[Rfam]
RNA: c-di-AMP riboswitch aptamer (ydaO/yuaA leader)
Organism: Paraconexibacter algicola
RNA sequence: CCGAACCAGACGCCGAGUCCCCGCCGCCCUGUGCCGCGGGGAACGGGGGACCCAGUGGACCACGGUCCUGGGGCGAAUCGCCGCACGAUGCGGCGUAGCGCAGUCUCACGCGCGAGCCCGACAGCUAACCCCGUAGGCGACGAGACAACCCAA
Numbered sequence: 001c002c003g004a005a006c007c008a009g010a011c012g013c014c015g016a017g018u019c020c021c022c023g024c025c026g027c028c029c030u031g032u033g034c035c036g037c038g039g040g041g042a043a044c045g046g047g048g049g050a051c052c053c054a055g056u057g058g059a060c061c062a063c064g065g066u067c068c069u070g071g072g073g074c075g076a077a078u079c080g081c082c083g084c085a086c087g088a089u090g091c092g093g094c095g096u097a098g099c100g101c102a103g104u105c106u107c108a109c110g111c112g113c114g115a116g117c118c119c120g121a122c123a124g125c126u127a128a129c130c131c132c133g134u135a136g137g138c139g140a141c142g143a144g145a146c147a148a149c150c151c152a153a
Stems, first nucleotide, its partner, number of pairs: 011139004018042007043134006053070002071119003079095004098113004